[Rfam]
RNA sequence: UAUAUGAAUAUGCUUAGUUUCCGACAACGUCGGAGAGCGGGGGAACCACCUUUUGGGGCGAAUCAUUUCAUUGCUUUUAAUGAAUGUAGGGUACCAUCUUACCCGAGUCCGUCAGCUAACCUCGUCAGCACAAGAUGGGUCAUUU
Numbered sequence: 001u002a003u004a005u006g007a008a009u010a011u012g013c014u015u016a017g018u019u020u021c022c023g024a025c026a027a028c029g030u031c032g033g034a035g036a037g038c039g040g041g042g043g044a045a046c047c048a049c050c051u052u053u054u055g056g057g058g059c060g061a062a063u064c065a066u067u068u069c070a071u072u073g074c075u076u077u078u079a080a081u082g083a084a085u086g087u088a089g090g091g092u093a094c095c096a097u098c099u100u101a102c103c104c105g106a107g108u109c110c111g112u113c114a115g116c117u118a119a120c121c122u123c124g125u126c127a128g129c130a131c132a133a134g135a136u137g138g139g140u141c142a143u144u145u
Stems, first nucleotide, its partner, number of pairs: 011130004018036008037125006047055002056110003064086004089104004

c-di-AMP riboswitch aptamer (ydaO/yuaA leader): a 145-nucleotide sequence from Paenibacillus beijingensis. A reference for the family is Barrick et al. (2004), "New RNA motifs suggest an expanded scope for riboswitches in bacterial genetic control", Proc Natl Acad Sci U S A. The organism belongs to Paenibacillus, within Bacteria. From the family's description: This family represents a conserved RNA structure found upstream of the ydaO and yuaA genes in Bacillus subtilis and related genes in other bacteria.